[Rfam]
RNA sequence: AGUGCAAGUGAUGAUGAAAAGACAGGGACAUCAUAAUCUCUUUGAGAUGAGAAUGAUGACUAAUGUCUAGAUGCGAAUCUCUCUGAUGCACA
Number, nucleotide and partner (000 for none) at each position: 001a000002g091003u090004g089005c088006a087007a000008g000009u000010g000011a000012u000013g000014a000015u000016g000017a000018a000019a000020a000021g000022a000023c000024a000025g000026g000027g000028a000029c000030a000031u000032c000033a000034u000035a000036a000037u000038c000039u000040c000041u000042u000043u000044g000045a000046g000047a000048u000049g000050a000051g000052a000053a000054u000055g000056a000057u000058g000059a000060c000061u000062a000063a000064u000065g000066u000067c000068u000069a000070g000071a000072u000073g000074c000075g000076a000077a000078u000079c000080u000081c000082u000083c000084u000085g000086a000087u006088g005089c004090a003091c002092a000
The family of this 92-nucleotide RNA from Arabidopsis lyrata is "Small nucleolar RNA R44/J54/Z268 family". The source organism's lineage runs through Eukaryota, Tracheophyta, Brassicaceae, Camelineae and Arabidopsis lyrata. The match comes from Rfam's covariance-model search (83 bits). By type it is a C/D-box small nucleolar RNA.